RNA sequence: GGACCGCCCGGCGGGGCUAAGGCCAUACGGACAGCCGGGUCCACUGCCGC
Numbered sequence: 001g002g003a004c005c006g007c008c009c010g011g012c013g014g015g016g017c018u019a020a021g022g023c024c025a026u027a028c029g030g031a032c033a034g035c036c037g038g039g040u041c042c043a044c045u046g047c048c049g050c
Stems, first nucleotide, its partner, number of pairs: 001042005006017004